[Rfam]
RNA sequence: GCCGUGAUCGUCUAGUGGUUAGGACCCCACGUUGUGGCCGUGGUAACCCAGGUUCGAAUCCUGGUCACGGCA
Numbered sequence: 001g002c003c004g005u006g007a008u009c010g011u012c013u014a015g016u017g018g019u020u021a022g023g024a025c026c027c028c029a030c031g032u033u034g035u036g037g038c039c040g041u042g043g044u045a046a047c048c049c050a051g052g053u054u055c056g057a058a059u060c061c062u063g064g065u066c067a068c069g070g071c072a
Stems, first nucleotide, its partner, number of pairs: 001071007010025004027043005048064005
RNA: tRNA